Rfam assigns this 401-nucleotide RNA from Hermanssonia centrifuga to the family "RNase MRP". NCBI's taxonomy places the organism under Eukaryota, Basidiomycota, Agaricomycotina, Agaricomycetes, Hermanssonia. It is annotated as a ribozyme. Pairs were carried over by alignment from the consensus structure, which is taken from published work. RNase MRP is an enzymatically active ribonucleoprotein with two distinct roles in eukaryotes.
RNA sequence: GCGCCGUCUGAAGAAUCGCUUUCGCAGCUCACACACAGAAGGCUCUACCCGCCUCUCUCUUUCCAGCUGUGGGGAAAGUCCCCGGAGAUGCAGAGACAUGUCCUCGUUCGUCUGGUAAACCCCUGCCCUUAAGCACGGUGGGUUCGGGCGAGGGCGGCUGGAGGUUCUGUUCGUGGUUCUCGCUCUUCCAGCGGAGGUACGGCUCUUCCAUGCCAACUUUGCUGUCGGUCCCCGGAUGAUACGUUCGGCGAAGGCGCGGAAAAUGCGAAGAUAUGAGCAUUCUCGUCGCUCGUGCGCGUCGUCUGUGGGUCGACUACGGUUACUCAUAGAUGUAGUUAUGCGAUCGCGUGGACCUUCUAUCGAAGACACAACAACGGAAUGGGGCUUACUCUCGGUCGACG
Numbered sequence: 001g002c003g004c005c006g007u008c009u010g011a012a013g014a015a016u017c018g019c020u021u022u023c024g025c026a027g028c029u030c031a032c033a034c035a036c037a038g039a040a041g042g043c044u045c046u047a048c049c050c051g052c053c054u055c056u057c058u059c060u061u062u063c064c065a066g067c068u069g070u071g072g073g074g075a076a077a078g079u080c081c082c083c084g085g086a087g088a089u090g091c092a093g094a095g096a097c098a099u100g101u102c103c104u105c106g107u108u109c110g111u112c113u114g115g116u117a118a119a120c121c122c123c124u125g126c127c128c129u130u131a132a133g134c135a136c137g138g139u140g141g142g143u144u145c146g147g148g149c150g151a152g153g154g155c156g157g158c159u160g161g162a163g164g165u166u167c168u169g170u171u172c173g174u175g176g177u178u179c180u181c182g183c184u185c186u187u188c189c190a191g192c193g194g195a196g197g198u199a200c201g202g203c204u205c206u207u208c209c210a211u212g213c214c215a216a217c218u219u220u221g222c223u224g225u226c227g228g229u230c231c232c233c234g235g236a237u238g239a240u241a242c243g244u245u246c247g248g249c250g251a252a253g254g255c256g257c258g259g260a261a262a263a264u265g266c267g268a269a270g271a272u273a274u275g276a277g278c279a280u281u282c283u284c285g286u287c288g289c290u291c292g293u294g295c296g297c298g299u300c301g302u303c304u305g306u307g308g309g310u311c312g313a314c315u316a317c318g319g320u321u322a323c324u325c326a327u328a329g330a331u332g333u334a335g336u337u338a339u340g341c342g343a344u345c346g347c348g349u350g351g352a353c354c355u356u357c358u359a360u361c362g363a364a365g366a367c368a369c370a371a372c373a374a375c376g377g378a379a380u381g382g383g384g385c386u387u388a389c390u391c392u393c394g395g396u397c398g399a400c401g
Base pairs, nucleotide, nucleotide: 002401003400005398006397008395009394010393011392015344016343017342018341019340022072023071024070025069026068027067028066038056040054041053042052043051076387077386078385080384081383082382083381095102096101239306240305241304246301247300248299249298250297254295255294256293257292265289266288267287268286275282276281348367